[Rfam]
RNA sequence: AUAUUGAUAGCGCUUAAUCAAUAGAGCGGGAGAACCAAAUUCAGGGGUGAAUCUUAUUAUUAAGAUAAGUAGGGUUAAUUUUCUUCAACCCGAAUCCGUCAGCUAAUCUCGUAAGCGUUGAAGAGAAGUUUG
Numbered sequence: 001a002u003a004u005u006g007a008u009a010g011c012g013c014u015u016a017a018u019c020a021a022u023a024g025a026g027c028g029g030g031a032g033a034a035c036c037a038a039a040u041u042c043a044g045g046g047g048u049g050a051a052u053c054u055u056a057u058u059a060u061u062a063a064g065a066u067a068a069g070u071a072g073g074g075u076u077a078a079u080u081u082u083c084u085u086c087a088a089c090c091c092g093a094a095u096c097c098g099u100c101a102g103c104u105a106a107u108c109u110c111g112u113a114a115g116c117g118u119u120g121a122a123g124a125g126a127a128g129u130u131u132g
Base pairs, nucleotide, nucleotide: 011117012116013115014114018025019024026112027111028110029109030108031107036044045097046096047095053069054068055067056066072091073090074089075088